[Rfam]
RNA: mir-965 microRNA precursor family
RNA sequence: UUCCGAACGGGGGAUGCUGUGCGCUCUAUGUGGCCGAUUGCAAAUCCAUAAGCGUAUAGCUUUUCCCAUUUGGCG
Number, nucleotide and partner (000 for none) at each position: 001u000002u000003c073004c072005g071006a070007a069008c000009g067010g066011g065012g000013g063014a062015u000016g000017c059018u058019g057020u056021g055022c000023g000024c052025u051026c000027u050028a049029u048030g047031u000032g000033g000034c000035c000036g000037a000038u000039u000040g000041c000042a000043a000044a000045u000046c000047c030048a029049u028050a027051a025052g024053c000054g000055u021056a020057u019058a018059g017060c000061u000062u014063u013064u000065c011066c010067c009068a000069u007070u006071u005072g004073g003074c000075g000